[Rfam]
RNA sequence: UCAUCACCACCAUCAUCCUGACUAGUCUUUCAGGCGAUUGGUGCUGGAAGACUUUCAAGAUCUUCCAGUGGUGUGAACGCAAGAGAACCCCCGGAAGAUCGUCUUCCGGGGGUUUUUUUAU
Numbered sequence: 001u002c003a004u005c006a007c008c009a010c011c012a013u014c015a016u017c018c019u020g021a022c023u024a025g026u027c028u029u030u031c032a033g034g035c036g037a038u039u040g041g042u043g044c045u046g047g048a049a050g051a052c053u054u055u056c057a058a059g060a061u062c063u064u065c066c067a068g069u070g071g072u073g074u075g076a077a078c079g080c081a082a083g084a085g086a087a088c089c090c091c092c093g094g095a096a097g098a099u100c101g102u103c104u105u106c107c108g109g110g111g112g113u114u115u116u117u118u119u120a121u
Base pairs, nucleotide, nucleotide: 008043009042010041012038013037014036017034018033019032020031021030044068045067046066047065048064049063050062051061082118083117084116085115086114087113088112089111090110091109092108093107094106095105096104097103
A member of the RNA family "Histidine operon leader" from Pantoea agglomerans, 121 nucleotides long. It scores 112 bits against the family's covariance model. Lineage of the source: Bacteria > Pseudomonadota > Gammaproteobacteria > Erwiniaceae > Pantoea. About the family: At least 6 amino acid operons are known to be regulated by attenuation. Rfam links the family to the GO term histidine biosynthetic process. It is annotated as a cis-regulatory leader.